Rfam assigns this 110-nucleotide sequence from Metabacillus arenae to the family "epsC RNA". The family's RNA type in Rfam is cis-regulatory element. The organism belongs to Metabacillus, within Bacteria.
RNA sequence: GGGUGAUGUCUCCUUACCACUAUCAAUGGAGGCACUCGGCUGCACUGUGGGUUAAUAGCCUUAGACGCGGAGUCGUCAAAAGUGUGGUGUGAGGAUGGGUUAGAUGCCCU
Numbered sequence: 001g002g003g004u005g006a007u008g009u010c011u012c013c014u015u016a017c018c019a020c021u022a023u024c025a026a027u028g029g030a031g032g033c034a035c036u037c038g039g040c041u042g043c044a045c046u047g048u049g050g051g052u053u054a055a056u057a058g059c060c061u062u063a064g065a066c067g068c069g070g071a072g073u074c075g076u077c078a079a080a081a082g083u084g085u086g087g088u089g090u091g092a093g094g095a096u097g098g099g100u101u102a103g104a105u106g107c108c109c110u
Stems, first nucleotide, its partner, number of pairs: 002018003007034007035093004039088008049061005064077004097109004
Dot-bracket structure: .[[[..(((((((..]]].........)))))))((((((((((((..(((((...)))))..((((......))))...)))))))).))))...((((.....)))).